A member of the RNA family "mir-128 microRNA precursor family" from Podiceps cristatus, 85 nucleotides long. The source organism's lineage runs through Eukaryota, Euteleostomi, Sauropsida, Saurischia and Podiceps.
RNA sequence: AUGCAGCUGGAAGGGGGGCCGUUACACUGUAAGAGAGUGAGUAGCAGGUCUCACAGUGAACCGAACUGCUGUGUCAUGCCAUUCC
Dot-bracket structure: .....(((((....(((..((...((((((..(((..............)))))))))...))..)).)....))).))......